[Rfam]
RNA sequence: GCAGCCACGGGAGAUGGCAUUCCUCCUCGAACCGCCCGUUCCACGGGCUGAUGAUGCCUGCCAGGCC
Numbered sequence: 001g002c003a004g005c006c007a008c009g010g011g012a013g014a015u016g017g018c019a020u021u022c023c024u025c026c027u028c029g030a031a032c033c034g035c036c037c038g039u040u041c042c043a044c045g046g047g048c049u050g051a052u053g054a055u056g057c058c059u060g061c062c063a064g065g066c067c
Stems, first nucleotide, its partner, number of pairs: 010026004016058006034048004
RNA: Fluoride riboswitch aptamer (crcB RNA motif)
Organism: Xanthomonas boreopolis